RNA sequence: GGUCCCGGCGAUGCACGAACCCCGGGAAAAGACCCUCGGAGAGAACCCUUCCCCAACCAAACCCCGUUCGUGUCCCUCGUGCGGGUGACAAUCGCUGACGGAUGGUCACAUGCGUCGCGGAUCGGCAUAGGCUCGCCGACGAGACAACCCAUCCAUAGGACGACCCCCGCCCGGGACUGCAAUCCCAAACGAGGGUCUGACCACCUGGAAGUGAGCCCUUCCGA
Numbered sequence: 001g002g003u004c005c006c007g008g009c010g011a012u013g014c015a016c017g018a019a020c021c022c023c024g025g026g027a028a029a030a031g032a033c034c035c036u037c038g039g040a041g042a043g044a045a046c047c048c049u050u051c052c053c054c055a056a057c058c059a060a061a062c063c064c065c066g067u068u069c070g071u072g073u074c075c076c077u078c079g080u081g082c083g084g085g086u087g088a089c090a091a092u093c094g095c096u097g098a099c100g101g102a103u104g105g106u107c108a109c110a111u112g113c114g115u116c117g118c119g120g121a122u123c124g125g126c127a128u129a130g131g132c133u134c135g136c137c138g139a140c141g142a143g144a145c146a147a148c149c150c151a152u153c154c155a156u157a158g159g160a161c162g163a164c165c166c167c168c169g170c171c172c173g174g175g176a177c178u179g180c181a182a183u184c185c186c187a188a189a190c191g192a193g194g195g196u197c198u199g200a201c202c203a204c205c206u207g208g209a210a211g212u213g214a215g216c217c218c219u220u221c222c223g224a
Stems, first nucleotide, its partner, number of pairs: 001205003010068004073088002076085003101137001103135003162197005168191002173186004207222005

Description
Shown here is a 224-nucleotide RNA from Streptomyces sp. RKND-216, a member of the family "Streptomyces sRNA 4677". A search with the family's covariance model found it, with a score of 62 bits. The family's RNA type in Rfam is small RNA.